[Rfam]
RNA sequence: AGGCCUGGUAACGCCCGUACCCCUUGAAAGAACCCUCGGAGAGAACCCUCCCAAUCCAAACCAAGGGCGCCGUCACCCGUAAGGGUGGAUAUCCCCAACCAGAGGCCGGAUCGGGCGCGUUGUGUGCUUACGUUCUUCUCAACGAAAAGCAACAGACAUGAGACGACCCCCGCCGGGAUUGCAGUCCGGGCGAGGGUCUGACCACCCAGGAAGUAGGCCCUUCCCG
Numbered sequence: 001a002g003g004c005c006u007g008g009u010a011a012c013g014c015c016c017g018u019a020c021c022c023c024u025u026g027a028a029a030g031a032a033c034c035c036u037c038g039g040a041g042a043g044a045a046c047c048c049u050c051c052c053a054a055u056c057c058a059a060a061c062c063a064a065g066g067g068c069g070c071c072g073u074c075a076c077c078c079g080u081a082a083g084g085g086u087g088g089a090u091a092u093c094c095c096c097a098a099c100c101a102g103a104g105g106c107c108g109g110a111u112c113g114g115g116c117g118c119g120u121u122g123u124g125u126g127c128u129u130a131c132g133u134u135c136u137u138c139u140c141a142a143c144g145a146a147a148a149g150c151a152a153c154a155g156a157c158a159u160g161a162g163a164c165g166a167c168c169c170c171c172g173c174c175g176g177g178a179u180u181g182c183a184g185u186c187c188g189g190g191c192g193a194g195g196g197u198c199u200g201a202c203c204a205c206c207c208a209g210g211a212a213g214u215a216g217g218c219c220c221u222u223c224c225c226g
Base pairs, nucleotide, nucleotide: 073088074087075086076085077084078083102138103137104136105135165198166197167196168195169194171192172191173190176187177186178185209224210223211222212221213220
The record is a 226-nucleotide RNA from Streptomycetaceae bacterium MP113-05, which matches "Streptomyces sRNA 4677" in Rfam.
The match comes from Rfam's covariance-model search (84 bits).
NCBI's taxonomy places the organism under Bacteria, Bacillati, Actinomycetes, Kitasatosporales, Streptomycetaceae.
For this family Rfam cites "Complex intra-operonic dynamics mediated by a small RNA in Streptomyces coelicolor" (Hindra et al., PLoS One, 2014).
Located in the intergenic region between anti-sigma factor SCO4677 gene and a putative regulatory protein gene SCO4676. scr4677 expression requires the SCO4677 activity and scr4677 sRNA itself seem to affect the levels of the SCO4676-associated transcripts.
Rfam classes the family as a small RNA.